This 102-nucleotide RNA sequence from Bacillus aerolatus belongs to the Rfam family "Purine riboswitch aptamer". The match comes from Rfam's covariance-model search (84 bits). Rfam describes the family as follows. Riboswitches are metabolite binding domains within certain messenger RNAs that serve as precision sensors for their corresponding targets.

[Rfam]
RNA sequence: UCGAAUAAUCAGUCGGCCCUUCAUAUAUUUUCGAUAAUAUGGGUCGAAAGUUUCUACCAAGUCACCGUAAAUGAUUGGACUAUGAAGGCAGAUUCUUUUUGA
Number, nucleotide and partner (000 for none) at each position: 001u000002c000003g000004a000005a000006u000007a000008a000009u000010c000011a000012g000013u000014c000015g000016g000017c000018c088019c087020u086021u085022c084023a083024u082025a081026u000027a000028u000029u049030u048031u047032c046033g045034a044035u043036a000037a000038u000039a000040u000041g000042g000043g035044u034045c033046g032047a031048a030049a029050g000051u000052u000053u000054c000055u000056a000057c000058c078059a000060a076061g075062u074063c073064a072065c000066c000067g000068u000069a000070a000071a000072u064073g063074a062075u061076u060077g000078g058079a000080c000081u025082a024083u023084g022085a021086a020087g019088g018089c000090a000091g000092a000093u000094u000095c000096u000097u000098u000099u000100u000101g000102a000